[Rfam]
RNA sequence: GAAUGUGUAAGGGGGAACGCCUCACGGGGUGGAAACAAGGUCACACUCCCGAGAGACGUUUUGGA
Numbered sequence: 001g002a003a004u005g006u007g008u009a010a011g012g013g014g015g016a017a018c019g020c021c022u023c024a025c026g027g028g029g030u031g032g033a034a035a036c037a038a039g040g041u042c043a044c045a046c047u048c049c050c051g052a053g054a055g056a057c058g059u060u061u062u063g064g065a
Stems, first nucleotide, its partner, number of pairs: 015061005021055002026050003029046003
The record is a 65-nucleotide RNA sequence, which matches "Cyano-1 RNA" in Rfam. It is annotated as a small RNA.